Bag-1 internal ribosome entry site (IRES): a 370-nucleotide RNA from Hipposideros armiger.
RNA sequence: UGGGCGGGUAACAAGCGCGGAUCUGGCGGAGCGCAGUGGUGCGCGAAGACAGCGAGGCGACCGGGAGCGGCUGGGCCCCCGGCGGCGCGCCCCUCGGCCGGGCCGGGAGCAGCGCCAGUCGGUGCCCCCGGCCGAGCGCGGUCCGCUUCCGUCUCAGCAAUCAUCUACCCGGAGUGCGGCCAGAGGGCAUGUCGGAUCCACCAGGGGCGCCGCCUCCGGCGCUCGCAGGCCGCGGGUGAAGAAGAAAGUGCGGCCUCGCUCGGCCAGGAGUGAACAAGUGGCCCAGAGCGUAGAGGUGACAGAGAACGAAGAGGUGACCCUAAGCGAAGAGGUGGCUCUAAGCGAAGAGGUGGCUCAGAGUGAGGAAAUG
Number, nucleotide and partner (000 for none) at each position: 001u000002g000003g000004g000005c000006g000007g000008g000009u000010a000011a000012c000013a000014a000015g000016c000017g000018c000019g000020g104021a000022u102023c101024u100025g099026g098027c097028g000029g000030a000031g000032c000033g000034c000035a000036g000037u000038g093039g092040u000041g090042c089043g053044c052045g000046a000047a000048g000049a000050c000051a000052g044053c043054g000055a000056g000057g000058c000059g000060a000061c082062c081063g080064g079065g078066a000067g076068c075069g000070g000071c000072u000073g000074g000075g068076c067077c000078c065079c064080c063081g062082g061083c000084g000085g000086c000087g000088c000089g042090c041091c000092c039093c038094u000095c000096g000097g027098c026099c025100g024101g023102g022103c000104c020105g000106g000107g000108a000109g000110c000111a000112g000113c000114g000115c000116c000117a000118g000119u000120c000121g000122g000123u000124g000125c000126c000127c000128c000129c000130g000131g000132c000133c000134g000135a000136g000137c000138g000139c000140g000141g000142u000143c000144c352145g351146c350147u349148u348149c347150c000151g000152u000153c000154u000155c000156a000157g000158c000159a000160a000161u000162c000163a000164u000165c000166u189167a000168c187169c186170c185171g000172g000173a000174g000175u000176g000177c000178g000179g000180c000181c000182a000183g000184a000185g170186g169187g168188c000189a166190u000191g000192u000193c000194g000195g000196a000197u000198c000199c000200a000201c000202c000203a000204g000205g224206g223207g222208c221209g220210c219211c218212g217213c000214c000215u000216c000217c212218g211219g210220c209221g208222c207223u206224c205225g000226c000227a000228g000229g000230c000231c000232g000233c000234g000235g000236g000237u000238g000239a000240a000241g000242a000243a000244g000245a000246a000247a000248g000249u000250g000251c000252g000253g000254c000255c000256u000257c272258g271259c270260u269261c268262g000263g000264c000265c000266a000267g000268g261269a260270g259271u258272g257273a000274a000275c000276a000277a000278g000279u000280g000281g000282c000283c000284c000285a000286g000287a000288g000289c000290g000291u000292a000293g000294a000295g000296g000297u000298g000299a000300c000301a000302g000303a000304g000305a000306a000307c000308g000309a000310a000311g000312a000313g000314g000315u000316g000317a000318c000319c000320c000321u000322a000323a000324g000325c000326g000327a000328a000329g000330a000331g000332g000333u000334g000335g000336c000337u000338c000339u000340a000341a000342g000343c000344g000345a000346a000347g149348a148349g147350g146351u145352g144353g000354c000355u000356c000357a000358g000359a000360g000361u000362g000363a000364g000365g000366a000367a000368a000369u000370g000
The family's consensus secondary structure was predicted with PFOLD. The organism belongs to Hipposideros, within Eukaryota. The match comes from Rfam's covariance-model search (329 bits). Its family is annotated with ribosome binding in the Gene Ontology. Rfam describes the family as follows. This family represents the bag-1 internal ribosome entry site (IRES). For this family Rfam cites "The p36 isoform of BAG-1 is translated by internal ribosome entry following heat shock" (Coldwell et al., Oncogene, 2001).